[Rfam]
Rfam assigns this 61-nucleotide RNA from Frankia canadensis to the family "Transposase-2 RNA". Rfam classes the family as a small RNA. Lineage of the source: Bacteria > Bacillati > Frankiales > Frankiaceae > Frankia. The family's consensus secondary structure is taken from published work.
RNA sequence: GAAGCGGGAACCGGGCACGGCCACGGCCGGUCAGACCCGGGGUGCCCCACCGAAAGGUGAG
Number, nucleotide and partner (000 for none) at each position: 001g000002a000003a000004g000005c000006g000007g000008g000009a000010a000011c040012c039013g038014g037015g036016c000017a000018c029019g028020g027021c026022c000023a000024c000025g000026g021027c020028c019029g018030g000031u000032c000033a000034g000035a000036c015037c014038c013039g012040g011041g000042g000043u000044g000045c000046c061047c000048c059049a058050c057051c056052g000053a000054a000055a000056g051057g050058u049059g048060a000061g046